[Rfam]
This 53-nucleotide sequence from Lichenifustis flavocetrariae belongs to the Rfam family "ffh sRNA". The organism belongs to Lichenifustis, within Bacteria. The family's consensus secondary structure is taken from published work. By type it is a small RNA. It scores 42 bits against the family's covariance model.

RNA sequence: GAGGCUGGAGGCGAACGUCCGACAGCGCUGAGGCGCCCUCGGGCGCGUUUUGC
Numbered sequence: 001g002a003g004g005c006u007g008g009a010g011g012c013g014a015a016c017g018u019c020c021g022a023c024a025g026c027g028c029u030g031a032g033g034c035g036c037c038c039u040c041g042g043g044c045g046c047g048u049u050u051u052g053c
Base pairs, nucleotide, nucleotide: 016045017044018043019042020041021040022039025036026035027034028033